[Rfam]
RNA sequence: UGGUUUUUUUAGGUUUUGAUUUUUGUAAGCGUUGGAUGAGAAAAUCAAAACCUAAAGAAAAUA
Numbered sequence: 001u002g003g004u005u006u007u008u009u010u011a012g013g014u015u016u017u018g019a020u021u022u023u024u025g026u027a028a029g030c031g032u033u034g035g036a037u038g039a040g041a042a043a044a045u046c047a048a049a050a051c052c053u054a055a056a057g058a059a060a061a062u063a
Base pairs, nucleotide, nucleotide: 004060005059006058007057008056009055010054011053012052013051014050015049016048017047018046019045020044021043022042023041024040
About this RNA:
Rfam assigns this 63-nucleotide RNA from Sparus aurata to the family "mir-737 microRNA precursor family". The match comes from Rfam's covariance-model search (86 bits).